[Rfam]
RNA sequence: UUGCAAUAGAGGGUUUAGAGUCUGACAAACUCAGAUAGCCUAUGUGUUGUCAUCAGCUUCUUCUCUUAAUCCAUGGAGUUGGGGUUAAAUCACAGCACGAAAUUU
Numbered sequence: 001u002u003g004c005a006a007u008a009g010a011g012g013g014u015u016u017a018g019a020g021u022c023u024g025a026c027a028a029a030c031u032c033a034g035a036u037a038g039c040c041u042a043u044g045u046g047u048u049g050u051c052a053u054c055a056g057c058u059u060c061u062u063c064u065c066u067u068a069a070u071c072c073a074u075g076g077a078g079u080u081g082g083g084g085u086u087a088a089a090u091c092a093c094a095g096c097a098c099g100a101a102a103u104u105u
Stems, first nucleotide, its partner, number of pairs: 043099007055086006062078001064076002
This 105-nucleotide RNA from Eucalyptus grandis belongs to the Rfam family "Small nucleolar RNA snoR97".
The family's consensus secondary structure was predicted with WAR.
The organism belongs to Eucalyptus, within Eukaryota.
Rfam 15.1 lists 862 matches to the family in 223 species.